Source information: A member of the RNA family "Small nucleolar RNA SNORD2" from Xenopus laevis, 69 nucleotides long. On this family, see Zhou et al., Gene 2004: "Identification of a novel box C/D snoRNA from mouse nucleolar cDNA library". It scores 53 bits against the family's covariance model. Its family is annotated with nucleolus and RNA processing in the Gene Ontology. Taxonomically the source falls in Xenopus (Eukaryota, Eumetazoa, Sarcopterygii, Tetrapoda). The family's RNA type in Rfam is C/D-box small nucleolar RNA.

RNA sequence: GAGCGAAGUGAUGGUAUACCAUCUUUCGGGACUGAAAGCCCUGAUGACAACUUGUAAAACUGAUCGCUC
Numbered sequence: 001g002a003g004c005g006a007a008g009u010g011a012u013g014g015u016a017u018a019c020c021a022u023c024u025u026u027c028g029g030g031a032c033u034g035a036a037a038g039c040c041c042u043g044a045u046g047a048c049a050a051c052u053u054g055u056a057a058a059a060c061u062g063a064u065c066g067c068u069c
Base pairs, nucleotide, nucleotide: 001069002068003067004066005065006064